[Rfam]
RNA sequence: GGUCUGUGAUGACUAGUAAAAGGUCUGAUUAACCUAAGGCCUACACUUCCAUGACCUUUUCUCCCAGCAGUUUCUCACCAGUCACGGCACAGUAAUGGUGUGGCUGGCAGAGUGUUUGCUGACAGCUUGUGAUGUGUUCUGUUCAUGUUAACUUGAAGCAUCGGAGACAUGACUGGGAUCAGCAUCCAGCAGUCUUAUGUGAAGGAGUUCGGGCUCUUGGAUUGUUGUAACAGGACAUGUGAUCUGACUUUUCUGCUGAGACC
Numbered sequence: 001g002g003u004c005u006g007u008g009a010u011g012a013c014u015a016g017u018a019a020a021a022g023g024u025c026u027g028a029u030u031a032a033c034c035u036a037a038g039g040c041c042u043a044c045a046c047u048u049c050c051a052u053g054a055c056c057u058u059u060u061c062u063c064c065c066a067g068c069a070g071u072u073u074c075u076c077a078c079c080a081g082u083c084a085c086g087g088c089a090c091a092g093u094a095a096u097g098g099u100g101u102g103g104c105u106g107g108c109a110g111a112g113u114g115u116u117u118g119c120u121g122a123c124a125g126c127u128u129g130u131g132a133u134g135u136g137u138u139c140u141g142u143u144c145a146u147g148u149u150a151a152c153u154u155g156a157a158g159c160a161u162c163g164g165a166g167a168c169a170u171g172a173c174u175g176g177g178a179u180c181a182g183c184a185u186c187c188a189g190c191a192g193u194c195u196u197a198u199g200u201g202a203a204g205g206a207g208u209u210c211g212g213g214c215u216c217u218u219g220g221a222u223u224g225u226u227g228u229a230a231c232a233g234g235a236c237a238u239g240u241g242a243u244c245u246g247a248c249u250u251u252u253c254u255g256c257u258g259a260g261a262c263c
Base pairs, nucleotide, nucleotide: 001263002262003261004260037245038244039243041241048221049220050219051218053216054215061207062206063205064204065121066120067119068118069117070116078107079106080105081104082103083102084101085100086099129187131186132185133184134183135182144171145170146169147168148167149166152163

This 263-nucleotide sequence from Eurystomus gularis belongs to the Rfam family "Small Cajal body specific RNA 6". The source organism's lineage runs through Eukaryota, Deuterostomia, Theropoda, Neoaves and Eurystomus. Gene Ontology terms of the family: RNA processing and nucleolus. The family's consensus secondary structure is taken from published work. U88 is small Cajal body specific RNA (scaRNA). scaRNAs are a novel class of small nuclear RNAs which localise to the Cajal bodies. It scores 118 bits against the family's covariance model. The family has 17 seed sequences and 1,309 matches in Rfam 15.1.